[Rfam]
The record is a 116-nucleotide RNA, which matches "Flavobacterium-1 RNA" in Rfam. The sequence is in the family's curated seed alignment.
RNA sequence: UAGCUCAAGGGCGUACACAUUUUGCCUAUGGCAUUUCCCUGGACGUAAGCAGUGACCGCAAGGUAGCAACCUGGAGUUAGCUCGGCUGUGAGUACGUGCACGGAAAGCAGCUGGGU
Numbered sequence: 001u002a003g004c005u006c007a008a009g010g011g012c013g014u015a016c017a018c019a020u021u022u023u024g025c026c027u028a029u030g031g032c033a034u035u036u037c038c039c040u041g042g043a044c045g046u047a048a049g050c051a052g053u054g055a056c057c058g059c060a061a062g063g064u065a066g067c068a069a070c071c072u073g074g075a076g077u078u079a080g081c082u083c084g085g086c087u088g089u090g091a092g093u094a095c096g097u098g099c100a101c102g103g104a105a106a107g108c109a110g111c112u113g114g115g116u
Base pairs, nucleotide, nucleotide: 001079002078003077004076005075006074008072009071010070011046012045013044014043016041017040023033024032025031026030049067050066056063057062081115082114083113084112085111086110087109088108089107095102096101
Dot-bracket structure: ((((((.(((((((.((.....((((...))))......)).))))..((.....((....))..))..))).)))))).(((((((((.....((....))....))))))))).